Annotation: The record is a 49-nucleotide RNA from Poseidonocella pacifica, which matches "SAM/SAH riboswitch aptamer" in Rfam. Rfam links the family to the GO terms regulation of gene expression and S-adenosylmethionine metabolic process. The literature on the family includes a 2019 paper in Nucleic Acids Res by Weickhmann et al., "The structure of the SAM/SAH-binding riboswitch". The base pairs follow the family's consensus structure, which is taken from published work.
[Rfam]
RNA sequence: UCCCCGUCACAACGGCUUCCUGAAGUGACGGCGUCAAUCCAUUGGAGCG
Numbered sequence: 001u002c003c004c005c006g007u008c009a010c011a012a013c014g015g016c017u018u019c020c021u022g023a024a025g026u027g028a029c030g031g032c033g034u035c036a037a038u039c040c041a042u043u044g045g046a047g048c049g
Base pairs, nucleotide, nucleotide: 004031005030006029007028008027009026010025013022014021015048016047017046019045020044